[Rfam]
RNA sequence: GAGCGCCUGUGAGGGGUACAGCACGGAUCCUGGACCGGGCUCAGCAUAUGAGACCGUGUCCGGCUUUGCAGGCAGUCAUCCGAUGUACGGCCCUGUGUACGUAAACUUUACGUUUCAAAAUAUUCCU
Numbered sequence: 001g002a003g004c005g006c007c008u009g010u011g012a013g014g015g016g017u018a019c020a021g022c023a024c025g026g027a028u029c030c031u032g033g034a035c036c037g038g039g040c041u042c043a044g045c046a047u048a049u050g051a052g053a054c055c056g057u058g059u060c061c062g063g064c065u066u067u068g069c070a071g072g073c074a075g076u077c078a079u080c081c082g083a084u085g086u087a088c089g090g091c092c093c094u095g096u097g098u099a100c101g102u103a104a105a106c107u108u109u110a111c112g113u114u115u116c117a118a119a120a121u122a123u124u125c126c127u
Base pairs, nucleotide, nucleotide: 005073006072007071008070009069010068011067013094014093015092017090021086022085023084025081026080027079028078062077063076064075065074099113100112101111102110103109104108

The family of this 127-nucleotide RNA sequence is "RT-5 RNA". Rfam classes the family as a small RNA.